Small nucleolar RNA SNORA44: a 131-nucleotide sequence from Nothoprocta ornata. The source organism's lineage runs through Eukaryota, Gnathostomata, Amniota, Tinamiformes and Nothoprocta. It scores 68 bits against the family's covariance model. ACA44 is a member of the H/ACA class of snoRNA that guide the sites of modification of uridines to pseudouridines. By type it is an H/ACA-box small nucleolar RNA. On this family, see Huttenhofer et al., EMBO J 2001: "RNomics: an experimental approach that identifies 201 candidates for novel, small, non-messenger RNAs in mouse".
[Rfam]
RNA sequence: CCGCGUGUUAAUCCAAGAGCGGCGGCUCCCCAGAGUAGCCUCCGCUCUCCAACAACACGCGAGAGCAACGGGAGGGUCUUUGACUGCCGGGCCUCUUCUGCCCGUCGCUGUCACUCACCCCUCCUAUAUGU
Number, nucleotide and partner (000 for none) at each position: 001c000002c000003g000004c000005g000006u000007g000008u000009u000010a000011a000012u000013c044014c000015a000016a000017g000018a000019g039020c038021g000022g036023c035024g000025g000026c000027u000028c000029c000030c000031c000032a000033g000034a000035g023036u022037a000038g020039c019040c000041u000042c000043c000044g013045c000046u000047c000048u000049c000050c000051a000052a000053c000054a000055a000056c000057a000058c000059g000060c000061g000062a000063g000064a000065g000066c000067a000068a000069c000070g000071g124072g123073a122074g121075g120076g119077u000078c000079u000080u000081u000082g000083a000084c000085u000086g111087c110088c104089g103090g102091g101092c000093c000094u000095c000096u000097u000098c000099u000100g000101c091102c090103c089104g088105u000106c000107g000108c000109u000110g087111u086112c000113a000114c000115u000116c000117a000118c000119c076120c075121c074122u073123c072124c071125u000126a000127u000128a000129u000130g000131u000